[Rfam]
RNA sequence: GCCAGCAACCCUUUGCUCGGAUCGUCCGGCACGUUCCUGCCGGUGAAGGGAUGGAGCU
Numbered sequence: 001g002c003c004a005g006c007a008a009c010c011c012u013u014u015g016c017u018c019g020g021a022u023c024g025u026c027c028g029g030c031a032c033g034u035u036c037c038u039g040c041c042g043g044u045g046a047a048g049g050g051a052u053g054g055a056g057c058u
Stems, first nucleotide, its partner, number of pairs: 009050007026043006
Dot-bracket structure: ........(((((((..........((((((......)))))))))))))........
RNA: msiK RNA
Organism: Actinopolymorpha singaporensis